[Rfam]
RNA sequence: AACCCCCAGUUAGACUGGGGGUUCGGGAAAGCUUACAGCUAUGAGUAGCCAUCCUUUGAACCCGGUGAUAAGAUGAGAGCCGGUCUGCCAACCGCUCAAACUUAUCACAGG
Numbered sequence: 001a002a003c004c005c006c007c008a009g010u011u012a013g014a015c016u017g018g019g020g021g022u023u024c025g026g027g028a029a030a031g032c033u034u035a036c037a038g039c040u041a042u043g044a045g046u047a048g049c050c051a052u053c054c055u056u057u058g059a060a061c062c063c064g065g066u067g068a069u070a071a072g073a074u075g076a077g078a079g080c081c082g083g084u085c086u087g088c089c090a091a092c093c094g095c096u097c098a099a100a101c102u103u104a105u106c107a108c109a110g111g
Base pairs, nucleotide, nucleotide: 001023002022003021004020005019006018007017008016009015010014028042030040031039032038033037062111063110065108066107067106068105069104070103071102072101074099077097078096079095081094082093083092084091